[Rfam]
RNA sequence: GGUCCCAGUCAGCUUUGCAGGGUUUGCAACCAGCCUGUGUGCUAUGAAGCAGCUGUGCAAACCCAUGCAAAUCUGACUGUGGCU
Numbered sequence: 001g002g003u004c005c006c007a008g009u010c011a012g013c014u015u016u017g018c019a020g021g022g023u024u025u026g027c028a029a030c031c032a033g034c035c036u037g038u039g040u041g042c043u044a045u046g047a048a049g050c051a052g053c054u055g056u057g058c059a060a061a062c063c064c065a066u067g068c069a070a071a072u073c074u075g076a077c078u079g080u081g082g083c084u
Base pairs, nucleotide, nucleotide: 003082004081006079007078008077009076010075011074012073014071015070016069017068018067019066020064021063023061024060025059026058027057028056032054033053034052